[Rfam]
RNA: mir-1994 microRNA precursor family
RNA sequence: UUCAAGGGAAGUCAUUCUGUCAGCAUGUUACAGAUUUAUCAUGAGACAGUGUGUCCUCCCUUGCUU
Numbered sequence: 001u002u003c004a005a006g007g008g009a010a011g012u013c014a015u016u017c018u019g020u021c022a023g024c025a026u027g028u029u030a031c032a033g034a035u036u037u038a039u040c041a042u043g044a045g046a047c048a049g050u051g052u053g054u055c056c057u058c059c060c061u062u063g064c065u066u
Stems, first nucleotide, its partner, number of pairs: 003063001006059003011054001013053003017049005025042003